This 119-nucleotide RNA from Scyliorhinus torazame belongs to the Rfam family "Small nucleolar RNA SNORA26". The family's consensus secondary structure was predicted with RNAalifold. From the family's description: The snoRNA HBI-6 belong to the H/ACA family of snoRNAs, guiding the pseudouridylation of position U4522 if the 28S rRNA. HBI-6 is the human orthologue of mouse MBI-6 snoRNA. It scores 70 bits against the family's covariance model. The family has 76 seed sequences and 1,943 matches in Rfam 15.1.
[Rfam]
RNA sequence: UUGCCCAUCUAAGACCGGCAGUGUCUUAGGUGACCAACACAAAUGGGUAGAUCAUUUUCUCACUCAAACCCAAAGCAACUGGACUGUCUGUGCUUUGGAUCCUGUCGUGAGGUACAGCU
Dot-bracket structure: .(((((((.(......(.(..........)....).....).))))))).........(((((......(((((((..(.(.(...)).).)))))))........)))))........
Numbered sequence: 001u002u003g004c005c006c007a008u009c010u011a012a013g014a015c016c017g018g019c020a021g022u023g024u025c026u027u028a029g030g031u032g033a034c035c036a037a038c039a040c041a042a043a044u045g046g047g048u049a050g051a052u053c054a055u056u057u058u059c060u061c062a063c064u065c066a067a068a069c070c071c072a073a074a075g076c077a078a079c080u081g082g083a084c085u086g087u088c089u090g091u092g093c094u095u096u097g098g099a100u101c102c103u104g105u106c107g108u109g110a111g112g113u114a115c116a117g118c119u
Stems, first nucleotide, its partner, number of pairs: 002049007010041001017035001019030001059111005070098007079090001081088001083087001